The family of this 315-nucleotide sequence from Sulfolobus acidocaldarius is "Archaeal RNase P". Ribonuclease P (RNase P) is a ubiquitous endoribonuclease, found in archaea, bacteria and eukarya as well as chloroplasts and mitochondria. Its best characterised activity is the generation of mature 5'-ends of tRNAs by cleaving the 5'-leader elements of precursor-tRNAs. Its family is annotated with multimeric ribonuclease P complex, ribonuclease P activity and tRNA processing in the Gene Ontology. It is one of the family's seed sequences. The source organism's lineage runs through Archaea, Thermoproteati, Thermoproteota, Sulfolobales and Sulfolobus. The family's consensus secondary structure is taken from published work.

[Rfam]
RNA sequence: UAGGGGAGCCUAACAGGGGGUUACGGGAAUAUCCUGAGGAAACUCCAGCCUCCAAGCCUCAUGGGAGCAGUUAGAUCUGCAGGGUUAGUGCUCUGGCUACUGCACAGAAACGUAACCGGUAUAAUAGGAUAUGAAAAUGAGUUUAUAUGUAGUCUAGGUAACUAGGCUACAUAAAUGAGACCUAUUAUACCGGCUGAAACGGCAGUCCUCCCAGGAGCAAGUAAGGAGGGGAUGAGUUGAGGUUCAACCCUCCUAAGGACGCUUAGUAGAAUCCCCCUAAAUACAAAAGCUGGGUUAUUGUUAGGCUCCCCUUAU
Numbered sequence: 001u002a003g004g005g006g007a008g009c010c011u012a013a014c015a016g017g018g019g020g021u022u023a024c025g026g027g028a029a030u031a032u033c034c035u036g037a038g039g040a041a042a043c044u045c046c047a048g049c050c051u052c053c054a055a056g057c058c059u060c061a062u063g064g065g066a067g068c069a070g071u072u073a074g075a076u077c078u079g080c081a082g083g084g085u086u087a088g089u090g091c092u093c094u095g096g097c098u099a100c101u102g103c104a105c106a107g108a109a110a111c112g113u114a115a116c117c118g119g120u121a122u123a124a125u126a127g128g129a130u131a132u133g134a135a136a137a138u139g140a141g142u143u144u145a146u147a148u149g150u151a152g153u154c155u156a157g158g159u160a161a162c163u164a165g166g167c168u169a170c171a172u173a174a175a176u177g178a179g180a181c182c183u184a185u186u187a188u189a190c191c192g193g194c195u196g197a198a199a200c201g202g203c204a205g206u207c208c209u210c211c212c213a214g215g216a217g218c219a220a221g222u223a224a225g226g227a228g229g230g231g232a233u234g235a236g237u238u239g240a241g242g243u244u245c246a247a248c249c250c251u252c253c254u255a256a257g258g259a260c261g262c263u264u265a266g267u268a269g270a271a272u273c274c275c276c277c278u279a280a281a282u283a284c285a286a287a288a289g290c291u292g293g294g295u296u297a298u299u300g301u302u303a304g305g306c307u308c309c310c311c312u313u314a315u
Base pairs, nucleotide, nucleotide: 004310005309006308008306009305010304011303012302013301014300015278016277017276018275019274020273024036025035026034027033028032041296042295043294045293046292047291048290049289050217051216052215053214055244056243057242058241059240060239062213063212064211065210066209067080068079069078070077081094082093083092084091085090095208096207100205101204102203103202116193117192118191121188122187123186124185125184126183127182128181145172146171221260222259226252227251228250229249230248